[Rfam]
This 272-nucleotide RNA sequence from Aspergillus terreus belongs to the Rfam family "Fungal signal recognition particle RNA".
Its Rfam clan is "SRP clan".
It is annotated as a non-coding RNA gene.
The literature on the family includes a 2002 paper in Curr Opin Struct Biol by Wild et al., "Towards the structure of the mammalian signal recognition particle".
NCBI's taxonomy places the organism under Eukaryota, Opisthokonta, leotiomyceta, Eurotiomycetes, Aspergillus terreus.
RNA sequence: AAUCUGUCACGGAUAACCUAGUGGGAGGUCAGCCGCCAAGCCAGUGGCCUUGCUUCGGCUUAUGCCAGCAGGACUGGUGCCCGGUACGAAUCCUGGGGUCGUCGUUAUACUCGUGCGAGUAGUCCACGAUCGCUAUGACGCGCUAAGCAAUGGAAAUGACCCUUGAGGGAAGCAAUUCUGCAGAGACAUUUCCACCCUGGGAUGGCGUCGCCGGAUUACACCGUCCUGUUACAGGGACGUUGGCUGCUUGGUUGGACAACUACAUCUCUCUU
Numbered sequence: 001a002a003u004c005u006g007u008c009a010c011g012g013a014u015a016a017c018c019u020a021g022u023g024g025g026a027g028g029u030c031a032g033c034c035g036c037c038a039a040g041c042c043a044g045u046g047g048c049c050u051u052g053c054u055u056c057g058g059c060u061u062a063u064g065c066c067a068g069c070a071g072g073a074c075u076g077g078u079g080c081c082c083g084g085u086a087c088g089a090a091u092c093c094u095g096g097g098g099u100c101g102u103c104g105u106u107a108u109a110c111u112c113g114u115g116c117g118a119g120u121a122g123u124c125c126a127c128g129a130u131c132g133c134u135a136u137g138a139c140g141c142g143c144u145a146a147g148c149a150a151u152g153g154a155a156a157u158g159a160c161c162c163u164u165g166a167g168g169g170a171a172g173c174a175a176u177u178c179u180g181c182a183g184a185g186a187c188a189u190u191u192c193c194a195c196c197c198u199g200g201g202a203u204g205g206c207g208u209c210g211c212c213g214g215a216u217u218a219c220a221c222c223g224u225c226c227u228g229u230u231a232c233a234g235g236g237a238c239g240u241u242g243g244c245u246g247c248u249u250g251g252u253u254g255g256a257c258a259a260c261u262a263c264a265u266c267u268c269u270c271u272u
Stems, first nucleotide, its partner, number of pairs: 002014003021263004027257001029255006035248001037246001039245008048236005055068001057066003071226004076222004081214005086208003090203009100142001102140001105138005111129005117124002143147001151194007162185003169178003